This 107-nucleotide RNA from Planococcus lenghuensis belongs to the Rfam family "TPP riboswitch aptamer (THI element)".

[Rfam]
RNA sequence: GCAAUCCACUAGGGGAGCCGUAUGAAAAACGGCUGAGACGGGCAGAGCCUGGACCCUUUGAACCUGAUCUGGAUCAUACCAGCGGAGGGAAGUGGGCGAAUGCACGC
Numbered sequence: 001g002c003a004a005u006c007c008a009c010u011a012g013g014g015g016a017g018c019c020g021u022a023u024g025a026a027a028a029a030c031g032g033c034u035g036a037g038a039c040g041g042g043c044a045g046a047g048c049c050u051g052g053a054c055c056c057u058u059u060g061a062a063c064c065u066g067a068u069c070u071g072g073a074u075c076a077u078a079c080c081a082g083c084g085g086a087g088g089g090a091a092g093u094g095g096g097c098g099a100a101u102g103c104a105c106g107c
Stems, first nucleotide, its partner, number of pairs: 006095005011057004017033005040050004063088003069082004